Shown here is a 193-nucleotide sequence from Shewanella fodinae, a member of the family "Lysine riboswitch aptamer".
Lineage of the source: Bacteria > Gammaproteobacteria > Alteromonadales > Shewanellaceae > Shewanella.
RNA sequence: CUGAGAAGUAGAGGCGCGCCUGAUAUGAGUAACGACAAGCAGGGUGAUACCGUUUGAUGUGUCGUGAAAGGAUCCGGUGCCGAAACAGCUGGAACCAUCAAUUCCGUUGUUGGGGCUGUUCCCGAACAGGGACAGCACUGCCAUGGUGGGCUAGAAAUAGCUGGAUUAAUUGCCGUGGAGCGCUACUGAAAAG
Dot-bracket structure: ......(((((....(((((.(((.......((((((.(..................).))))))......))).)))))...(((((.(((((.......))))))))))((.((((((((......)))))))).)).(((((((((....................)))))))))....)))))......